[Rfam]
Shown here is a 98-nucleotide sequence from Lacticaseibacillus paracasei, a member of the family "TPP riboswitch aptamer (THI element)". Rfam describes the family as follows. Vitamin B(1) in its active form thiamin pyrophosphate (TPP) is an essential coenzyme that is synthesised by coupling of pyrimidine and thiazole moieties in bacteria. The match comes from Rfam's covariance-model search (65 bits). The base pairs follow the family's consensus structure, which is taken from published work.
RNA sequence: ACCUUCACAAAGGGGAGCCAUUGGCUGAGAACGGGGAAACCCGGACCCUUCGAACCUGUUCGUUAAUGCGAGCGUAGGGAUUUGUGAAUGGUCGGAAG
Dot-bracket structure: .....(((((((((..(((...)))......((((....))))..)))).....((((((((......))))..))))...)))))............
Numbered sequence: 001a002c003c004u005u006c007a008c009a010a011a012g013g014g015g016a017g018c019c020a021u022u023g024g025c026u027g028a029g030a031a032c033g034g035g036g037a038a039a040c041c042c043g044g045a046c047c048c049u050u051c052g053a054a055c056c057u058g059u060u061c062g063u064u065a066a067u068g069c070g071a072g073c074g075u076a077g078g079g080a081u082u083u084g085u086g087a088a089u090g091g092u093c094g095g096a097a098g
Stems, first nucleotide, its partner, number of pairs: 006086005011049004017025003032043004055078004059072004